[Rfam]
RNA sequence: UCCAUCGCGAGAUGGAAUCUGAAAGAAGUCAGCGGCAAACAUCUGCCCCGACGUACAGAAACCUAAUACCAAGGCUUGCUUGCGAGGGUGAGGCGGCCGAAAGCGUCAAAGCCCUAUAACUACUCGGAAUCGCAAGGAGUAAAUUAGGCGGGGAUAAGGUGGAAAGUCGGUAUA
Numbered sequence: 001u002c003c004a005u006c007g008c009g010a011g012a013u014g015g016a017a018u019c020u021g022a023a024a025g026a027a028g029u030c031a032g033c034g035g036c037a038a039a040c041a042u043c044u045g046c047c048c049c050g051a052c053g054u055a056c057a058g059a060a061a062c063c064u065a066a067u068a069c070c071a072a073g074g075c076u077u078g079c080u081u082g083c084g085a086g087g088g089u090g091a092g093g094c095g096g097c098c099g100a101a102a103g104c105g106u107c108a109a110a111g112c113c114c115u116a117u118a119a120c121u122a123c124u125c126g127g128a129a130u131c132g133c134a135a136g137g138a139g140u141a142a143a144u145u146a147g148g149c150g151g152g153g154a155u156a157a158g159g160u161g162g163a164a165a166g167u168c169g170g171u172a173u174a
Base pairs, nucleotide, nucleotide: 001016002015003014004013005012006011031171035167036166040161041160042159043158044157046153047152048151049150050149062148063147064146065145066144067143074140075139076138079136080135081134082133083132084131085130086114087113088112089111092107093106094105095104
RNA: Group II catalytic intron D1-D4-3
Organism: Prevotella lacticifex